[Rfam]
The record is a 73-nucleotide RNA from Myotis davidii, which matches "mir-9193 microRNA precursor family" in Rfam. Rfam links the family to the GO terms miRNA-mediated post-transcriptional gene silencing and RISC complex.

RNA sequence: CUUGGGGUGGGGGUUCCCUCAGCCCGGAUUGCAAGAGGGCGCAGGCCAGGCUGAAGGACCCCACCAGUGCACG
Numbered sequence: 001c002u003u004g005g006g007g008u009g010g011g012g013g014u015u016c017c018c019u020c021a022g023c024c025c026g027g028a029u030u031g032c033a034a035g036a037g038g039g040c041g042c043a044g045g046c047c048a049g050g051c052u053g054a055a056g057g058a059c060c061c062c063a064c065c066a067g068u069g070c071a072c073g
Stems, first nucleotide, its partner, number of pairs: 003071002006068001008066003011062003015058003019054006026047002029044004
Taxonomically the source falls in Myotis (Eukaryota, Opisthokonta, Boreoeutheria, Laurasiatheria).